[Rfam]
RNA: MIR1033 microRNA precursor family
Organism: Physcomitrium patens
RNA sequence: AGUCGCAUUGGGAAUGUCCAUGACGAUCUGUCAACAUUUCAGGUUAUGUUGACGGGUCGUGAUGGGCACUCUCACUGUCUCA
Numbered sequence: 001a002g003u004c005g006c007a008u009u010g011g012g013a014a015u016g017u018c019c020a021u022g023a024c025g026a027u028c029u030g031u032c033a034a035c036a037u038u039u040c041a042g043g044u045u046a047u048g049u050u051g052a053c054g055g056g057u058c059g060u061g062a063u064g065g066g067c068a069c070u071c072u073c074a075c076u077g078u079c080u081c082a
Base pairs, nucleotide, nucleotide: 005078006077007076009074010073011072012071013070015068016067017066018065019064020063023060024059025058026057027056028055029054030053031052032051033050034049035048036047037046